Rfam assigns this 103-nucleotide sequence from Lachnospiraceae bacterium A4 to the family "c-di-GMP-I riboswitch aptamer".
Rfam links the family to the GO term cyclic-di-GMP binding.
The base pairs follow the family's consensus structure, which is taken from published work.
A search with the family's covariance model found it, with a score of 52 bits.
[Rfam]
RNA sequence: UAACAUAAAGGGCAAACAUUUAGUGAUAAAUGGACGCAAAGCAUGAAGUCAUAGAGAGAAAUCUGUAUAGAAAGAAAUCCGUUAUGAUGGUUCGGCUGCAUAA
Numbered sequence: 001u002a003a004c005a006u007a008a009a010g011g012g013c014a015a016a017c018a019u020u021u022a023g024u025g026a027u028a029a030a031u032g033g034a035c036g037c038a039a040a041g042c043a044u045g046a047a048g049u050c051a052u053a054g055a056g057a058g059a060a061a062u063c064u065g066u067a068u069a070g071a072a073a074g075a076a077a078u079c080c081g082u083u084a085u086g087a088u089g090g091u092u093c094g095g096c097u098g099c100a101u102a103a
Stems, first nucleotide, its partner, number of pairs: 012037002017032006040097003045093003048088003055082001